[Rfam]
RNA sequence: UGUAUAGGAACCUCUACUAAAGGCUGCCACGUCCUGUGGCAAACGUAGAGGUCAGCACAUCCUGUGCA
Numbered sequence: 001u002g003u004a005u006a007g008g009a010a011c012c013u014c015u016a017c018u019a020a021a022g023g024c025u026g027c028c029a030c031g032u033c034c035u036g037u038g039g040c041a042a043a044c045g046u047a048g049a050g051g052u053c054a055g056c057a058c059a060u061c062c063u064g065u066g067c068a
Base pairs, nucleotide, nucleotide: 011051012050013049014048015047016046017045026040027039028038029037030036055067056066057065058064
Dot-bracket structure: ..........(((((((........(((((.....)))))....)))))))...((((.....)))).
A member of the RNA family "Bacillaceae-1 RNA" from Bacillus mesophilus, 68 nucleotides long. The family has 95 seed sequences and 5,721 matches in Rfam 15.1. Lineage of the source: Bacteria > Bacillati > Bacilli > Bacillaceae > Bacillus.